[Rfam]
RNA: Small nucleolar RNA SNORA47
Organism: Anser cygnoides
RNA sequence: UGGAGGAUUGAGAAGGUAAGACAGUUAGCCUUCACGCUGUAUCUUACUGGUUAUAGCCUCCAAAAUUAUAAUAGUGCAAUUGCAGCUCAUGCUCUCCUCCUGACAUGAGGGAAAGCAGUACUGCAUUUGCACAUAGAAU
Numbered sequence: 001u002g003g004a005g006g007a008u009u010g011a012g013a014a015g016g017u018a019a020g021a022c023a024g025u026u027a028g029c030c031u032u033c034a035c036g037c038u039g040u041a042u043c044u045u046a047c048u049g050g051u052u053a054u055a056g057c058c059u060c061c062a063a064a065a066u067u068a069u070a071a072u073a074g075u076g077c078a079a080u081u082g083c084a085g086c087u088c089a090u091g092c093u094c095u096c097c098u099c100c101u102g103a104c105a106u107g108a109g110g111g112a113a114a115g116c117a118g119u120a121c122u123g124c125a126u127u128u129g130c131a132c133a134u135a136g137a138a139u
Stems, first nucleotide, its partner, number of pairs: 002061005015048004019042001021040005081131003090123002097118002100115002104111001